[Rfam]
RNA sequence: UGUAUAGAAAUGUGCUUUUUAAAACGAUAACGGAAUUGUAUUAUAUAUAAUACAAAAAAUAUAGAAGUGAAUAUUGAUAUGGUCGCUUUUGAGCAUAAAAAAAGCAGUAUCACUACUGCCAAUUUUAUGGUGCGCCCUAGUGGACUCGAACCACCGACCCCCACCA
Numbered sequence: 001u002g003u004a005u006a007g008a009a010a011u012g013u014g015c016u017u018u019u020u021a022a023a024a025c026g027a028u029a030a031c032g033g034a035a036u037u038g039u040a041u042u043a044u045a046u047a048u049a050a051u052a053c054a055a056a057a058a059a060u061a062u063a064g065a066a067g068u069g070a071a072u073a074u075u076g077a078u079a080u081g082g083u084c085g086c087u088u089u090u091g092a093g094c095a096u097a098a099a100a101a102a103a104g105c106a107g108u109a110u111c112a113c114u115a116c117u118g119c120c121a122a123u124u125u126u127a128u129g130g131u132g133c134g135c136c137c138u139a140g141u142g143g144a145c146u147c148g149a150a151c152c153a154c155c156g157a158c159c160c161c162c163a164c165c166a
Stems, first nucleotide, its partner, number of pairs: 020043002025038004056090003128163003132159001137156001140154004
This 166-nucleotide sequence from Succinatimonas sp. CAG:777 belongs to the Rfam family "Bacterial antisense RNA HPnc0260".
A search with the family's covariance model found it, with a score of 64 bits.
On this family, see Sharma et al., Nature 2010: "The primary transcriptome of the major human pathogen Helicobacter pylori".